[Rfam]
RNA sequence: AUAUUGGUUGGGAAUGAAGUUCUCCCGCGGCAAUGCCGAAACCGCUUGUUGUAUUCGACUUCAGGCUGAUGACUUCUGCAAUCAU
Dot-bracket structure: .........[[[[..((((((.]]]].................((((...............))))....)))))).........